[Rfam]
RNA: MIR7510 microRNA precursor family
Organism: Gossypium hirsutum
RNA sequence: AACGCCGCUGAAGAACAUGAUCUUUAGCGGCGUGUUUUACUAAGCGCCGCUAAAGAAUAUGUUCUUUAGCGGCGUUU
Numbered sequence: 001a002a003c004g005c006c007g008c009u010g011a012a013g014a015a016c017a018u019g020a021u022c023u024u025u026a027g028c029g030g031c032g033u034g035u036u037u038u039a040c041u042a043a044g045c046g047c048c049g050c051u052a053a054a055g056a057a058u059a060u061g062u063u064c065u066u067u068a069g070c071g072g073c074g075u076u077u
Base pairs, nucleotide, nucleotide: 003074004073005072006071007070008069009068010067011066012065013064014063015062016061017060018059020058021056022055023054024053025052026051027050028049029048030047031046032045033044